[Rfam]
RNA sequence: UAUCCCUGAUCUGGGUGGCACCUGGUUUGGUGGUGCUUGUUGCAUAUCAGCCAGGGACAAAGUAACUCCUUGUUCAUCUCAGCUUGGCUUUUGGUCUGUGCUCAUGCCUGGUUCAUGGCCUGGACACAUGG
Numbered sequence: 001u002a003u004c005c006c007u008g009a010u011c012u013g014g015g016u017g018g019c020a021c022c023u024g025g026u027u028u029g030g031u032g033g034u035g036c037u038u039g040u041u042g043c044a045u046a047u048c049a050g051c052c053a054g055g056g057a058c059a060a061a062g063u064a065a066c067u068c069c070u071u072g073u074u075c076a077u078c079u080c081a082g083c084u085u086g087g088c089u090u091u092u093g094g095u096c097u098g099u100g101c102u103c104a105u106g107c108c109u110g111g112u113u114c115a116u117g118g119c120c121u122g123g124a125c126a127c128a129u130g131g
Stems, first nucleotide, its partner, number of pairs: 001059001003057006011050004015043001017037006071126006086119001088117001092115003096111003100107002
Rfam assigns this 131-nucleotide RNA sequence from Pteropus vampyrus to the family "Small nucleolar RNA SNORA48". The family's RNA type in Rfam is H/ACA-box small nucleolar RNA. The source organism's lineage runs through Eukaryota, Craniata, Euteleostomi, Tetrapoda and Pteropus. Clan: SNORA48 clan. Rfam describes the family as follows. The snoRNA ACA 48 has been identified to guide pseudouridylation of the residue U3797 in the 28S rRNA subunit. The family's consensus secondary structure was predicted with RNAalifold.